Description: Lysine riboswitch aptamer: a 172-nucleotide RNA from Alkalicoccus urumqiensis.
RNA sequence: GGACGGGGCAGAGGAGCAGCAGCGAUGAGUAUCGUGCAGGAGCGCGGCAGCGCAGAGACCGCACGGGAAAGGCAAUGCUGCCGAAGCUCUAUUUUCUGCAGAAGAUAGAGCUGGGUCACUGUCGAACAGGCAGUGGACUGUCACGGUUAUUCCGUGGAGUACUGCCGGUCCG
Numbered sequence: 001g002g003a004c005g006g007g008g009c010a011g012a013g014g015a016g017c018a019g020c021a022g023c024g025a026u027g028a029g030u031a032u033c034g035u036g037c038a039g040g041a042g043c044g045c046g047g048c049a050g051c052g053c054a055g056a057g058a059c060c061g062c063a064c065g066g067g068a069a070a071g072g073c074a075a076u077g078c079u080g081c082c083g084a085a086g087c088u089c090u091a092u093u094u095u096c097u098g099c100a101g102a103a104g105a106u107a108g109a110g111c112u113g114g115g116u117c118a119c120u121g122u123c124g125a126a127c128a129g130g131c132a133g134u135g136g137a138c139u140g141u142c143a144c145g146g147u148u149a150u151u152c153c154g155u156g157g158a159g160u161a162c163u164g165c166c167g168g169u170c171c172g
Base pairs, nucleotide, nucleotide: 007166008165009164010163011162016081017080018079019078020077021076024073032066033065034064035063036062037061039059085112086111087110088109089108090107091106092105093104094103095102096101113139114138116136117135118134119133120132121131122130123129141157142156143155144154145153146152
Rfam's curators write: Riboswitches are metabolite binding domains within certain messenger RNAs that serve as precision sensors for their corresponding targets. Taxonomically the source falls in Alkalicoccus (Bacteria, Bacillota, Bacilli, Bacillaceae).